[Rfam]
RNA sequence: UGGGUAGUAUCUAUUUCGGAACUAUACCAAUUCAGCUUUUUAUACAAAAUAGAUUCUGCCUUGAUCCUUAAACGGACGGGGACAGAGGG
Numbered sequence: 001u002g003g004g005u006a007g008u009a010u011c012u013a014u015u016u017c018g019g020a021a022c023u024a025u026a027c028c029a030a031u032u033c034a035g036c037u038u039u040u041u042a043u044a045c046a047a048a049a050u051a052g053a054u055u056c057u058g059c060c061u062u063g064a065u066c067c068u069u070a071a072a073c074g075g076a077c078g079g080g081g082a083c084a085g086a087g088g089g
Base pairs, nucleotide, nucleotide: 001029002028003027004025005024006023007022008021010020011019056085057084058083059081060080061079062078063077065076066075067074